[Rfam]
RNA sequence: UGGCGGGGGAGCACCACAACGGGUGGAGCCUGCGGUUUAAUCGGACUCAACGCCGGGAAUCUCACCGGAUAAGACAGCUGAAUGAUAGUCGGGAUGAAGACUCUACUUGACUAGCUGAGAGGAGGUGCAUGGCCGUCGUCAGUUCGUACUGUGAAGCAUCCUGUUUAGUCAGGCAACGAGCGAGACCCACGCCAACAAUUGCCAGCUUGACCUCCGGGUCGAUGGGGACAUUGUUGGGACCGCCUCUGCUAAAGGGGAGGAAGGAAUGGGCAACGGUAGGUCAGCAUGCCCCGAAUUAUCCGGGCUACACGCGGGCUACAAUGGUUGGGACAAUGGGUUCCGACACCGAAAGGUGAAGGUAAUCUCCUAAACCCAGUCUAAGUUCGGAUUGCGGGUUGUAACUCACCCGCAUGAAGCUGGAAUCCGUAGUAAUCGCGUUUCACCAUAGCGCGGUGAAUAUGUCCCUGCUCCUUGCACACACCGCCCGUCAAACCACCCGAGUGAGGUCUUGAUGAGGCGACGCCAAAUGGCGCUGUCGAAUCUGGGUUUCGCAAGGGGGGUUAAGUCGUAACAAGGUAGCCGUAGGGGAAUCUGCGGCUG
Number, nucleotide and partner (000 for none) at each position: 001u478002g477003g475004c474005g473006g000007g472008g471009g470010a469011g468012c467013a466014c000015c000016a462017c461018a000019a000020c426021g425022g424023g423024u422025g319026g000027a317028g316029c315030c314031u313032g312033c311034g310035g308036u307037u000038u000039a000040a000041u056042c055043g054044g053045a000046c000047u000048c000049a000050a000051c000052g000053c044054c043055g042056g041057g000058a000059a000060u000061c000062u000063c000064a000065c303066c302067g301068g300069a299070u298071a297072a000073g000074a000075c117076a116077g115078c114079u000080g111081a000082a000083u000084g000085a000086u000087a107088g106089u105090c000091g103092g102093g101094a000095u000096g000097a000098a000099g000100a000101c093102u092103c091104u000105a089106c088107u087108u000109g000110a000111c080112u000113a000114g078115c077116u076117g075118a000119g000120a000121g292122g291123a000124g290125g289126u288127g287128c000129a000130u286131g285132g281133c280134c279135g277136u276137c275138g274139u000140c000141a000142g181143u180144u179145c178146g177147u176148a000149c156150u155151g000152u000153g000154a000155a150156g149157c000158a000159u000160c173161c172162u171163g170164u000165u000166u000167a000168g000169u000170c163171a162172g161173g160174c000175a000176a147177c146178g145179a144180g143181c142182g000183a000184g000185a000186c000187c269188c268189a267190c000191g000192c237193c236194a235195a234196c233197a232198a231199u000200u000201g000202c226203c225204a000205g000206c224207u000208u222209g220210a219211c218212c217213u000214c000215c000216g000217g212218g211219u210220c209221g000222a208223u000224g206225g203226g202227g000228a000229c000230a000231u198232u197233g196234u195235u194236g193237g192238g000239a000240c260241c259242g000243c257244c256245u255246c254247u253248g000249c000250u000251a000252a000253a247254g246255g245256g244257g243258a000259g241260g240261a000262a000263g000264g000265a000266a000267u189268g188269g187270g000271c000272a000273a000274c138275g137276g136277u135278a000279g134280g133281u132282c000283a000284g000285c131286a130287u127288g126289c125290c124291c122292c121293g000294a000295a000296u000297u071298a070299u069300c068301c067302g066303g065304g000305c000306u000307a036308c035309a000310c034311g033312c032313g031314g030315g029316c028317u027318a000319c025320a000321a000322u000323g378324g377325u376326u375327g374328g373329g372330a000331c000332a000333a000334u000335g366336g365337g364338u000339u000340c359341c358342g000343a000344c355345a354346c353347c352348g000349a000350a000351a000352g347353g346354u345355g344356a000357a000358g341359g340360u000361a000362a000363u000364c337365u336366c335367c000368u000369a000370a000371a000372c329373c328374c327375a326376g325377u324378c323379u000380a000381a000382g000383u000384u000385c416386g000387g000388a000389u000390u411391g410392c409393g408394g407395g406396u405397u000398g000399u000400a000401a000402c000403u000404c000405a396406c395407c394408c393409g392410c391411a390412u000413g000414a000415a000416g385417c000418u000419g000420g000421a000422a024423u023424c022425c021426g020427u000428a000429g000430u000431a000432a454433u453434c452435g451436c450437g449438u448439u447440u000441c000442a000443c000444c000445a000446u000447a439448g438449c437450g436451c435452g434453g433454u432455g000456a000457a000458u000459a000460u000461g017462u016463c000464c000465c000466u013467g012468c011469u010470c009471c008472u007473u005474g004475c003476a000477c002478a001479c000480a000481c575482c000483g572484c000485c000486c568487g567488u000489c565490a000491a562492a561493c560494c559495a000496c557497c556498c555499g000500a000501g552502u551503g550504a549505g548506g547507u546508c545509u544510u000511g542512a541513u540514g000515a000516g537517g536518c535519g534520a000521c532522g531523c530524c529525a000526a000527a000528u000529g524530g523531c522532g521533c000534u519535g518536u517537c516538g000539a000540a513541u512542c511543u000544g509545g508546g507547u506548u505549u504550c503551g502552c501553a000554a000555g498556g497557g496558g000559g494560g493561u492562u491563a000564a000565g489566u000567c487568g486569u000570a000571a000572c483573a000574a000575g481576g000577u600578a599579g598580c597581c596582g595583u594584a593585g592586g591587g000588g000589a000590a000591u586592c585593u584594g583595c582596g581597g580598c579599u578600g577